[Rfam]
Background: Rfam assigns this 57-nucleotide sequence from Rhamnella rubrinervis to the family "Plastid-rps18 3UTR RNA". For this family Rfam cites "Retrograde signaling in plants: A critical review focusing on the GUN pathway and beyond" (Richter et al., Plant Commun, 2023). Rfam 15.1 lists 1,462 matches to the family in 409 species. The match comes from Rfam's covariance-model search (77 bits). Plastid rps18 is a non-coding RNA (ncRNA) present in plastids.

RNA sequence: UGCAAGUAUUUUACGAUUAAGAAGUAAACGCCUCUUGUACAGAUUGUUUAUUAGUCU
Numbered sequence: 001u002g003c004a005a006g007u008a009u010u011u012u013a014c015g016a017u018u019a020a021g022a023a024g025u026a027a028a029c030g031c032c033u034c035u036u037g038u039a040c041a042g043a044u045u046g047u048u049u050a051u052u053a054g055u056c057u
Stems, first nucleotide, its partner, number of pairs: 018037005024031002